This 91-nucleotide RNA sequence from Blastochloris viridis belongs to the Rfam family "rpsB sRNA". Taxonomically the source falls in Blastochloris (Bacteria, Pseudomonadati, Pseudomonadota, Blastochloridaceae).
[Rfam]
RNA sequence: CACACGCGGACACGAGGGUCUCUUCCCGACCCGUCCGGUGCCCCGAUACCGGGGCGACCGUCCGCGGAGGUUCAACCGGAAAAGGAACUGA
Numbered sequence: 001c002a003c004a005c006g007c008g009g010a011c012a013c014g015a016g017g018g019u020c021u022c023u024u025c026c027c028g029a030c031c032c033g034u035c036c037g038g039u040g041c042c043c044c045g046a047u048a049c050c051g052g053g054g055c056g057a058c059c060g061u062c063c064g065c066g067g068a069g070g071u072u073c074a075a076c077c078g079g080a081a082a083a084g085g086a087a088c089u090g091a
Base pairs, nucleotide, nucleotide: 001069003067005066006065007064008063009062010061016032017031018030019029020028040055041054042053043052044051045050
The family's RNA type in Rfam is small RNA. The literature on the family includes a 2009 paper in BMC Genomics by Meyer et al., "Identification of candidate structured RNAs in the marine organism 'Candidatus Pelagibacter ubique'". It scores 43 bits against the family's covariance model.